[Rfam]
RNA sequence: GUCGGUGUCGUCACCGUGCAGACCAGCGCCGUGCCGGUCGUCACCGAACUGCCGGGCCGCACGAAUGCCUUCCUCGUGGCACAGGUGCGCGCACGCGUGGACGGCAUCGUCCUGCGCCGCGAGUUUACGGAAGGCAGCGAAGUGAAGGCGGGCCAGCGUCUUUACAAGAUAGA
Numbered sequence: 001g002u003c004g005g006u007g008u009c010g011u012c013a014c015c016g017u018g019c020a021g022a023c024c025a026g027c028g029c030c031g032u033g034c035c036g037g038u039c040g041u042c043a044c045c046g047a048a049c050u051g052c053c054g055g056g057c058c059g060c061a062c063g064a065a066u067g068c069c070u071u072c073c074u075c076g077u078g079g080c081a082c083a084g085g086u087g088c089g090c091g092c093a094c095g096c097g098u099g100g101a102c103g104g105c106a107u108c109g110u111c112c113u114g115c116g117c118c119g120c121g122a123g124u125u126u127a128c129g130g131a132a133g134g135c136a137g138c139g140a141a142g143u144g145a146a147g148g149c150g151g152g153c154c155a156g157c158g159u160c161u162u163u164a165c166a167a168g169a170u171a172g173a
Stems, first nucleotide, its partner, number of pairs: 003054005008047003011043001013041002016038001019036001021034001023031001056149003059143002066136003072133001074131002079092002082089001094121002097118001100115001102114003106110001157172001159169003
RNA: Burkholderia RNA 14
Organism: Trinickia caryophylli